[Rfam]
RNA sequence: AGCCCAUGAUGGUAUGAGAGUAGUGGACAGAAGGGAUUUCUGAAAAACACUUUUCUGAGGCU
Number, nucleotide and partner (000 for none) at each position: 001a062002g061003c060004c059005c000006a000007u000008g000009a000010u000011g000012g000013u000014a000015u000016g000017a000018g000019a000020g000021u000022a000023g000024u000025g000026g000027a000028c000029a000030g000031a000032a000033g000034g000035g000036a000037u000038u000039u000040c000041u000042g000043a000044a000045a000046a000047a000048c000049a000050c000051u000052u000053u000054u000055c000056u000057g000058a000059g004060g003061c002062u001
The family of this 62-nucleotide RNA sequence is "Small nucleolar RNA SNORD75". For this family Rfam cites "Purified box C/D snoRNPs are able to reproduce site-specific 2'-O-methylation of target RNA in vitro" (Galardi et al., Mol Cell Biol, 2002). By type it is a C/D-box small nucleolar RNA. It is one of the family's seed sequences. The family has 5 seed sequences and 767 matches in Rfam 15.1. The base pairs follow the family's consensus structure, which was predicted with RNAalifold.